[Rfam]
RNA sequence: UUGCUCAAGAAGCGCUGCGACGGUCCGAAAUCAGGGCUGCCAGGCUUGAGCGUGACACCUGUCAACCGCGCUUACCUCGA
Numbered sequence: 001u002u003g004c005u006c007a008a009g010a011a012g013c014g015c016u017g018c019g020a021c022g023g024u025c026c027g028a029a030a031u032c033a034g035g036g037c038u039g040c041c042a043g044g045c046u047u048g049a050g051c052g053u054g055a056c057a058c059c060u061g062u063c064a065a066c067c068g069c070g071c072u073u074a075c076c077u078c079g080a
Stems, first nucleotide, its partner, number of pairs: 002052007021039006

The family of this 80-nucleotide sequence from Rhizobacter sp. is "SAH (S-adenosyl-L-homocysteine) riboswitch aptamer". Its family is annotated with regulation of gene expression and S-adenosylhomocysteine metabolic process in the Gene Ontology. The family's consensus secondary structure is taken from published work. Lineage of the source: Bacteria > Pseudomonadati > Burkholderiales > Sphaerotilaceae > Rhizobacter.